[Rfam]
RNA: c-di-GMP-I riboswitch aptamer
RNA sequence: AAGAGUAAAAGGCAAAACCGCUGUGAGGCGGUGACGCAAAACUAGAGGGUCUCGGGGCGCAGGGAUCCGCCUUCGAGAUAGCCAGUUGCCAUU
Numbered sequence: 001a002a003g004a005g006u007a008a009a010a011g012g013c014a015a016a017a018c019c020g021c022u023g024u025g026a027g028g029c030g031g032u033g034a035c036g037c038a039a040a041a042c043u044a045g046a047g048g049g050u051c052u053c054g055g056g057g058c059g060c061a062g063g064g065a066u067c068c069g070c071c072u073u074c075g076a077g078a079u080a081g082c083c084a085g086u087u088g089c090c091a092u093u
Stems, first nucleotide, its partner, number of pairs: 012037002017032006040087004047083002049079009